[Rfam]
Rfam assigns this 133-nucleotide sequence from Gadus morhua to the family "U8 small nucleolar RNA". Taxonomically the source falls in Gadus (Eukaryota, Eumetazoa, Eurypterygia, Paracanthopterygii). The family's consensus secondary structure is taken from published work. On this family, see Peculis et al., Gene 2001: "The U8 snoRNA gene family: identification and characterization of distinct, functional U8 genes in Xenopus".

RNA sequence: UCAUUAGUGUGGUCUAUCCUUACCUGUGGUUCUUUAAAAGAGAACUUCAGAACAUGAUGAUUGGAGAUCUUAUGAGAUAUGAUUAUAUCUCCUCCUGGCUGAGCGCAACAACUCUCCAGGUUUCCAUUCUGAC
Numbered sequence: 001u002c003a004u005u006a007g008u009g010u011g012g013u014c015u016a017u018c019c020u021u022a023c024c025u026g027u028g029g030u031u032c033u034u035u036a037a038a039a040g041a042g043a044a045c046u047u048c049a050g051a052a053c054a055u056g057a058u059g060a061u062u063g064g065a066g067a068u069c070u071u072a073u074g075a076g077a078u079a080u081g082a083u084u085a086u087a088u089c090u091c092c093u094c095c096u097g098g099c100u101g102a103g104c105g106c107a108a109c110a111a112c113u114c115u116c117c118a119g120g121u122u123u124c125c126a127u128u129c130u131g132a133c
Stems, first nucleotide, its partner, number of pairs: 024050003028046006074091002077088004098117001101114003